Annotation:
Shown here is a 350-nucleotide sequence from Lachnoclostridium sp. An181, a member of the family "transfer-messenger RNA". From the family's description: Bacterial tmRNA, also known as 10Sa RNA or SsrA, is named for its dual tRNA and mRNA-like properties. Its role is to liberate the mRNA from a stalled ribosome. To accomplish this part of the tmRNA is used as a reading frame that ends in a translation stop signal. The broken mRNA is replaced in the ribosome by the tmRNA and translation of the tmRNA leads to addition of a proteolysis tag to the incomplete protein enabling recognition by a protease. Recently a number of permuted tmRNA genes have been found encoded in two parts. tmRNAs have been identified in eubacteria and some chloroplasts but are absent from archaeal and eukaryote nuclear genomes.
RNA sequence: GGGCUUGUACUGGUUUCGACGGGGGUCUAGAAGUUAGAGUAGCCAUCCGCAGCGCGGGACUGCGUUAAAACCUGCAACUUAAAAUUAAACGCAGACGAAAAUUUAGCGUACGCUGCCUAAUUGUGCAGCAGUCGGCCUUAGGUAUCUCACCGCUUAAGUAACCGGCUUCAACAAGGUGAGGCACUUUGUCUCCAAAGCUUUGAGGGGAUAAAAGAAUUUAUGAAGCUACUGAAGUGAAAAGCCUGUCACCGGGCGUUUCAUGGAGGGAAUGUCAAAACGAUGACUGUGAUUGGGAGAAGCUAUAAUGGAAGGGCUUUCGGACGCGGGUUCAACUCCCGCCAGGUCCAUUU
Numbered sequence: 001g002g003g004c005u006u007g008u009a010c011u012g013g014u015u016u017c018g019a020c021g022g023g024g025g026u027c028u029a030g031a032a033g034u035u036a037g038a039g040u041a042g043c044c045a046u047c048c049g050c051a052g053c054g055c056g057g058g059a060c061u062g063c064g065u066u067a068a069a070a071c072c073u074g075c076a077a078c079u080u081a082a083a084a085u086u087a088a089a090c091g092c093a094g095a096c097g098a099a100a101a102u103u104u105a106g107c108g109u110a111c112g113c114u115g116c117c118u119a120a121u122u123g124u125g126c127a128g129c130a131g132u133c134g135g136c137c138u139u140a141g142g143u144a145u146c147u148c149a150c151c152g153c154u155u156a157a158g159u160a161a162c163c164g165g166c167u168u169c170a171a172c173a174a175g176g177u178g179a180g181g182c183a184c185u186u187u188g189u190c191u192c193c194a195a196a197g198c199u200u201u202g203a204g205g206g207g208a209u210a211a212a213a214g215a216a217u218u219u220a221u222g223a224a225g226c227u228a229c230u231g232a233a234g235u236g237a238a239a240a241g242c243c244u245g246u247c248a249c250c251g252g253g254c255g256u257u258u259c260a261u262g263g264a265g266g267g268a269a270u271g272u273c274a275a276a277a278c279g280a281u282g283a284c285u286g287u288g289a290u291u292g293g294g295a296g297a298a299g300c301u302a303u304a305a306u307g308g309a310a311g312g313g314c315u316u317u318c319g320g321a322c323g324c325g326g327g328u329u330c331a332a333c334u335c336c337c338g339c340c341a342g343g344u345c346c347a348u349u350u
Stems, first nucleotide, its partner, number of pairs: 001346007020319009033306004038301003043293002045290003048064005054075005112129005130167006137158007145181007186211008196227006229266002234261005241254003245284004323339005

Description:
Its Rfam clan is "tRNA clan". The family's consensus secondary structure is taken from published work. It is annotated as a non-coding RNA gene.